Shown here is a 367-nucleotide RNA from Cochlearius cochlearius, a member of the family "Nuclear RNase P". The literature on the family includes a 1998 paper in Annu Rev Biochem by Frank and Pace, "Ribonuclease P: unity and diversity in a tRNA processing ribozyme". Rfam classes the family as a ribozyme.

RNA sequence: UCCGGGGGAAGCUCACUGCCGAGGCCACGCACGGGGUGCGCGUCACCCUCCGCCCCGCCUCGGGGAAGGUCUGAGGGAAGGGCCGCCCGCGGCUCCAGCAGAGCCCCGCCCGCGAGUGGGCGGGUGAGCCACCAGCAAGGGGGGGCGCCGCGUUAAACCCGGGCCGUGCGUGGGCAGGAGAAGCCGUAGCUGGUUUAUAAGCGCGGGUGAGGGGCGCUAACGCCCCCUUACGCUGCGUGGUUUAAACCCCGGUGGAUGCUCGUGGCCCCGCGGUGCUUUGAGACAGACUCACGGCCGGCGAUGGUUGAGUCCAAUGGGUGAGGUGGGGCAGCGCCCUACAACCCAAUUCAGACUACUCUCCCCCGGA
Numbered sequence: 001u002c003c004g005g006g007g008g009a010a011g012c013u014c015a016c017u018g019c020c021g022a023g024g025c026c027a028c029g030c031a032c033g034g035g036g037u038g039c040g041c042g043u044c045a046c047c048c049u050c051c052g053c054c055c056c057g058c059c060u061c062g063g064g065g066a067a068g069g070u071c072u073g074a075g076g077g078a079a080g081g082g083c084c085g086c087c088c089g090c091g092g093c094u095c096c097a098g099c100a101g102a103g104c105c106c107c108g109c110c111c112g113c114g115a116g117u118g119g120g121c122g123g124g125u126g127a128g129c130c131a132c133c134a135g136c137a138a139g140g141g142g143g144g145g146c147g148c149c150g151c152g153u154u155a156a157a158c159c160c161g162g163g164c165c166g167u168g169c170g171u172g173g174g175c176a177g178g179a180g181a182a183g184c185c186g187u188a189g190c191u192g193g194u195u196u197a198u199a200a201g202c203g204c205g206g207g208u209g210a211g212g213g214g215c216g217c218u219a220a221c222g223c224c225c226c227c228u229u230a231c232g233c234u235g236c237g238u239g240g241u242u243u244a245a246a247c248c249c250c251g252g253u254g255g256a257u258g259c260u261c262g263u264g265g266c267c268c269c270g271c272g273g274u275g276c277u278u279u280g281a282g283a284c285a286g287a288c289u290c291a292c293g294g295c296c297g298g299c300g301a302u303g304g305u306u307g308a309g310u311c312c313a314a315u316g317g318g319u320g321a322g323g324u325g326g327g328g329c330a331g332c333g334c335c336c337u338a339c340a341a342c343c344c345a346a347u348u349c350a351g352a353c354u355a356c357u358c359u360c361c362c363c364c365g366g367a
Base pairs, nucleotide, nucleotide: 001367002366003365004364007361008360009359012322013321014320015319016318017317020062021061022060023059024058034048035047036046037045038044071351072350073349074348075347081296082295083294084293091105092104093103094102095101106123107122108121109120110119111118124292125291126290127289128288130286144277145276146275147274148273149272150271151270152269323339324338325337326336327335328334329333
Ribonuclease P (RNase P) is a ubiquitous endoribonuclease, found in archaea, bacteria and eukarya as well as chloroplasts and mitochondria. The family is grouped with related families in Rfam's "RNaseP clan".